[Rfam]
RNA sequence: UCAUUGUUGAUGUGUAUCCUAACCUGUUUUUCUUUAAUAUAGAAUUUCAGAACAUGAUGAGUGGAGUUCUAACGAGAUAUGAUUAUAUCUCUUUCCUUGUUGCGAGCAAUAACCCAGCAGGUUCCAUUCUGAU
Numbered sequence: 001u002c003a004u005u006g007u008u009g010a011u012g013u014g015u016a017u018c019c020u021a022a023c024c025u026g027u028u029u030u031u032c033u034u035u036a037a038u039a040u041a042g043a044a045u046u047u048c049a050g051a052a053c054a055u056g057a058u059g060a061g062u063g064g065a066g067u068u069c070u071a072a073c074g075a076g077a078u079a080u081g082a083u084u085a086u087a088u089c090u091c092u093u094u095c096c097u098u099g100u101u102g103c104g105a106g107c108a109a110u111a112a113c114c115c116a117g118c119a120g121g122u123u124c125c126a127u128u129c130u131g132a133u
Base pairs, nucleotide, nucleotide: 024050025049026048030044031043032042033041074091075090077088078087079086080085096121097120098119099118100117101116102115
RNA: U8 small nucleolar RNA